[Rfam]
RNA sequence: UGAAUUUGCACAUUUAUUACUCGUAUAUCCCCUGAAUAUGGCAGGGAGUAUCUACCGGAAACCUUAAAUUUCUGACUAUGAGUGAAUAUAAUAUAGAC
Numbered sequence: 001u002g003a004a005u006u007u008g009c010a011c012a013u014u015u016a017u018u019a020c021u022c023g024u025a026u027a028u029c030c031c032c033u034g035a036a037u038a039u040g041g042c043a044g045g046g047a048g049u050a051u052c053u054a055c056c057g058g059a060a061a062c063c064u065u066a067a068a069u070u071u072c073u074g075a076c077u078a079u080g081a082g083u084g085a086a087u088a089u090a091a092u093a094u095a096g097a098c
Base pairs, nucleotide, nucleotide: 018084019083020082021081022080023079024078025077030046031045032044033043034042056074057073058072059071060070061069
A member of the RNA family "Purine riboswitch aptamer" from Clostridium thermobutyricum, 98 nucleotides long. NCBI's taxonomy places the organism under Bacteria, Bacillati, Eubacteriales, Clostridiaceae, Clostridium. Clan: Purine riboswitches.